A member of the RNA family "Vault RNA" from Triplophysa rosa, 88 nucleotides long. Rfam classes the family as a non-coding RNA gene. The family has 73 seed sequences and 2,873 matches in Rfam 15.1.
[Rfam]
RNA sequence: ACACUGGCGUAGCUCAGGGGUUACUUCUAUCUGCGUUCUGAUUCUCCUCCCGUCAGGGAUCGAACCCCGUGCACUGUCCAGUGUUUUG
Numbered sequence: 001a002c003a004c005u006g007g008c009g010u011a012g013c014u015c016a017g018g019g020g021u022u023a024c025u026u027c028u029a030u031c032u033g034c035g036u037u038c039u040g041a042u043u044c045u046c047c048u049c050c051c052g053u054c055a056g057g058g059a060u061c062g063a064a065c066c067c068c069g070u071g072c073a074c075u076g077u078c079c080a081g082u083g084u085u086u087u088g
Stems, first nucleotide, its partner, number of pairs: 002083006012072002015069001017068004025064003029060001
Background: About the family: This family of RNAs are found as part of the enigmatic vault ribonucleoprotein complex. The complex consists of a major vault protein (MVP), two minor vault proteins (VPARP and TEP1), and several small untranslated RNA molecules. Pairs were carried over by alignment from the consensus structure, which is taken from published work.